[Rfam]
RNA sequence: CCGGGGACUGCGGGAGAGACUGGUUUUUCUCCAGCGCCGAAGGAGCAACCGCCCCGGAAACUCUCAGGCAAACGGACCGCAGUCAGGUC
Dot-bracket structure: .....((((((((......((((.......)))).(((((..(((...((.....))...))))).))).......)))))))).....
RNA: Glycine riboswitch aptamer